[Rfam]
RNA: XIST RNA A repeat
Organism: Sciurus carolinensis
RNA sequence: UUGCCCAUCGGGGCCUCGGAUACCUGCAUUUUUUUU
Numbered sequence: 001u002u003g004c005c006c007a008u009c010g011g012g013g014c015c016u017c018g019g020a021u022a023c024c025u026g027c028a029u030u031u032u033u034u035u036u
Stems, first nucleotide, its partner, number of pairs: 003014004017026003